[Rfam]
RNA sequence: AACCUCUUUAACGUAGUCCAGUGAGUCUAGAAAGAGAUCGAGCUUUCUUAAGUGAAAAGAAAGCAUUGAACCUCUUUGUUAAAGAACAAAGAGGUUUUUGUUU
Numbered sequence: 001a002a003c004c005u006c007u008u009u010a011a012c013g014u015a016g017u018c019c020a021g022u023g024a025g026u027c028u029a030g031a032a033a034g035a036g037a038u039c040g041a042g043c044u045u046u047c048u049u050a051a052g053u054g055a056a057a058a059g060a061a062a063g064c065a066u067u068g069a070a071c072c073u074c075u076u077u078g079u080u081a082a083a084g085a086a087c088a089a090a091g092a093g094g095u096u097u098u099u100g101u102u103u
Stems, first nucleotide, its partner, number of pairs: 004036006014029003018025001042064008068097013